[Rfam]
RNA sequence: UGUGGUUGGGUCUCCGAUUUUUUGGAAUGUUCCAAACUC
Numbered sequence: 001u002g003u004g005g006u007u008g009g010g011u012c013u014c015c016g017a018u019u020u021u022u023u024g025g026a027a028u029g030u031u032c033c034a035a036a037c038u039c
Stems, first nucleotide, its partner, number of pairs: 004019006021036006
RNA: Plastid psbT antisense RNA